Shown here is a 126-nucleotide RNA from Caenorhabditis japonica, a member of the family "Caenorhabditis snoRNA ceN46". The match comes from Rfam's covariance-model search (91 bits). NCBI's taxonomy places the organism under Eukaryota, Opisthokonta, Metazoa, Chromadorea, Caenorhabditis. The literature on the family includes a 2007 paper in BMC Mol Biol by Jia et al., "Systematic identification of non-coding RNA 2,2,7-trimethylguanosine cap structures in Caenorhabditis elegans". The family's RNA type in Rfam is H/ACA-box small nucleolar RNA.
[Rfam]
RNA sequence: CAAGCACGACGCAACCUGCUUCCGGACAUGUGCUGUAAGCGGUACUAUUAGUGCGAUAUGAACGUGUGGGCCCUCCGUGUGCGUGUGACUUCAUUGUGCUAGCACUCCGUUGGUCACCAGACAAUU
Dot-bracket structure: ........(((..(.((((...(((.......)))...))))...)..).))............((..((((..(.(.((((..((...........))..)))).).)..))))..)).......